[Rfam]
RNA sequence: CCCCUUCCCAUCGCGGUGCGCGCCUCCUAUAUCGGUCGUGCCGGGUUCGCCCGGCUAUGACGAUAAAUCGUGGCGUAUAAUAGAUGCAGCGGACCCGGGGGCAGUACCCGGCGGCUCCACCAUAAGGUGGUGUUUCUGGACACCGUUUCUGACGGGGCCGAACCAGGAUCGACGUGUAUUGAAAGGCGCUACCUUCGUUCGGAAUGGGACCACCGCGACGGCCCAUACACACAAGUGCCAACGAUAACGAAGCACUCGCUAUUGCGGCCUAACCCUACGUCCUAACGGACCAAGGUUAGACUAAAAUGCGCGGUUGAACCCACCGGGCAACAGAAGGGAAUUCA
Numbered sequence: 001c002c003c004c005u006u007c008c009c010a011u012c013g014c015g016g017u018g019c020g021c022g023c024c025u026c027c028u029a030u031a032u033c034g035g036u037c038g039u040g041c042c043g044g045g046u047u048c049g050c051c052c053g054g055c056u057a058u059g060a061c062g063a064u065a066a067a068u069c070g071u072g073g074c075g076u077a078u079a080a081u082a083g084a085u086g087c088a089g090c091g092g093a094c095c096c097g098g099g100g101g102c103a104g105u106a107c108c109c110g111g112c113g114g115c116u117c118c119a120c121c122a123u124a125a126g127g128u129g130g131u132g133u134u135u136c137u138g139g140a141c142a143c144c145g146u147u148u149c150u151g152a153c154g155g156g157g158c159c160g161a162a163c164c165a166g167g168a169u170c171g172a173c174g175u176g177u178a179u180u181g182a183a184a185g186g187c188g189c190u191a192c193c194u195u196c197g198u199u200c201g202g203a204a205u206g207g208g209a210c211c212a213c214c215g216c217g218a219c220g221g222c223c224c225a226u227a228c229a230c231a232c233a234a235g236u237g238c239c240a241a242c243g244a245u246a247a248c249g250a251a252g253c254a255c256u257c258g259c260u261a262u263u264g265c266g267g268c269c270u271a272a273c274c275c276u277a278c279g280u281c282c283u284a285a286c287g288g289a290c291c292a293a294g295g296u297u298a299g300a301c302u303a304a305a306a307u308g309c310g311c312g313g314u315u316g317a318a319c320c321c322a323c324c325g326g327g328c329a330a331c332a333g334a335a336g337g338g339a340a341u342u343c344a
Stems, first nucleotide, its partner, number of pairs: 040055005059199005070192007085178003089175003095111005112160007200215003205225003210221002311325004316343003321338001